[Rfam]
RNA sequence: UCUGCCCCUUGAGGCGCUGCAGUCUGACUGUCUGUCGAGCAUGUGUCAUGAGGGGCAGAGAGUGACAGGGUUGUGUCUACACCGAGGACACAGAAUAGUGGGUACUUGGAAUGAUAAUAGCGCCAACAGA
Numbered sequence: 001u002c003u004g005c006c007c008c009u010u011g012a013g014g015c016g017c018u019g020c021a022g023u024c025u026g027a028c029u030g031u032c033u034g035u036c037g038a039g040c041a042u043g044u045g046u047c048a049u050g051a052g053g054g055g056c057a058g059a060g061a062g063u064g065a066c067a068g069g070g071u072u073g074u075g076u077c078u079a080c081a082c083c084g085a086g087g088a089c090a091c092a093g094a095a096u097a098g099u100g101g102g103u104a105c106u107u108g109g110a111a112u113g114a115u116a117a118u119a120g121c122g123c124c125a126a127c128a129g130a
Stems, first nucleotide, its partner, number of pairs: 002058010013047003019044003024039001025037004068124002070121005083109001085107002088103002091100001
RNA: Small nucleolar RNA SNORA17